[Rfam]
RNA sequence: AAAUUAUCAAGAAAGGACGAGGGAACAGACCCAUCGACUCCUUAGCAACCCUUCAUUUUUGUCGACAUUAAAUGAAGAAGGUGCUAAUUUCUGCCACGCAAGUGGACCAGAUGAUAC
Numbered sequence: 001a002a003a004u005u006a007u008c009a010a011g012a013a014a015g016g017a018c019g020a021g022g023g024a025a026c027a028g029a030c031c032c033a034u035c036g037a038c039u040c041c042u043u044a045g046c047a048a049c050c051c052u053u054c055a056u057u058u059u060u061g062u063c064g065a066c067a068u069u070a071a072a073u074g075a076a077g078a079a080g081g082u083g084c085u086a087a088u089u090u091c092u093g094c095c096a097c098g099c100a101a102g103u104g105g106a107c108c109a110g111a112u113g114a115u116a117c
Stems, first nucleotide, its partner, number of pairs: 003115006013043005021032003026093004044085004049081002051077008089109001094105004

This 117-nucleotide sequence from Nonlabens ponticola belongs to the Rfam family "SAM riboswitch aptamer (S box leader)". The SAM riboswitch is found upstream of a number of genes which code for proteins involved in methionine or cysteine biosynthesis in Gram-positive bacteria. The source organism's lineage runs through Bacteria, Pseudomonadati, Flavobacteriales, Flavobacteriaceae and Nonlabens.